[Rfam]
Overview:
The family of this 108-nucleotide RNA from Clostridium sp. CT7 is "TPP riboswitch aptamer (THI element)". NCBI's taxonomy places the organism under Bacteria, Bacillati, Bacillota, Eubacteriales, Clostridium. It scores 70 bits against the family's covariance model.
RNA sequence: UAUGUGUGCUAGGGGUGCCUUUGGGCUGAGAAACAAUACUGUUUUGUUAGUGUUAACCCUUAACCUGAUCUGGAUAAUACCAGCGUAGGGAAGCAAUAUGAAUUUUAG
Numbered sequence: 001u002a003u004g005u006g007u008g009c010u011a012g013g014g015g016u017g018c019c020u021u022u023g024g025g026c027u028g029a030g031a032a033a034c035a036a037u038a039c040u041g042u043u044u045u046g047u048u049a050g051u052g053u054u055a056a057c058c059c060u061u062a063a064c065c066u067g068a069u070c071u072g073g074a075u076a077a078u079a080c081c082a083g084c085g086u087a088g089g090g091a092a093g094c095a096a097u098a099u100g101a102a103u104u105u106u107a108g
Stems, first nucleotide, its partner, number of pairs: 007095004011060004017026003033053003037049001064089004070083004